[Rfam]
RNA sequence: CUGAUUGCAGCUGCAGCAUCAUCAAGAUUCUCAUACAUCAAUAAAUCUCUUAAUAUAUAUGUGAUGUGCAAAGACUUGAUGAUUUGUGUGUGAAUCUUGAUGAUGCUCCAACAGCGAACAG
Numbered sequence: 001c002u003g004a005u006u007g008c009a010g011c012u013g014c015a016g017c018a019u020c021a022u023c024a025a026g027a028u029u030c031u032c033a034u035a036c037a038u039c040a041a042u043a044a045a046u047c048u049c050u051u052a053a054u055a056u057a058u059a060u061g062u063g064a065u066g067u068g069c070a071a072a073g074a075c076u077u078g079a080u081g082a083u084u085u086g087u088g089u090g091u092g093a094a095u096c097u098u099g100a101u102g103a104u105g106c107u108c109c110a111a112c113a114g115c116g117a118a119c120a121g
Stems, first nucleotide, its partner, number of pairs: 010112001012110002015107016032090005
Dot-bracket structure: .........(.((.((((((((((((((((.(((((.................................................))))).)))))))))))))))).)).).........
This 121-nucleotide RNA from Microthlaspi erraticum belongs to the Rfam family "mir-172 microRNA precursor family". mir-172 has been experimentally verified in Arabidopsis thaliana. This family is thought to target mRNAs coding for APETALA2-like transcription factors. The organism belongs to Microthlaspi, within Eukaryota.